[Rfam]
MIR403 microRNA precursor family: a 99-nucleotide RNA sequence from Tripterygium wilfordii. A search with the family's covariance model found it, with a score of 98 bits.

RNA sequence: GCAUAUCACUAGUUUGUGCGUGAAUCAAACGCCAUCACGACCGUCCAUUUCUGGACAAUCUUACGGUGUUAGAUUCACGCACAAACUCCUGAUCUGUCU
Dot-bracket structure: (((.(((...((((((((((((((((.(((.((.........(.(........).)........)).))).))))))))))))))))...))).)))..
The family has 13 seed sequences and 215 matches in Rfam 15.1.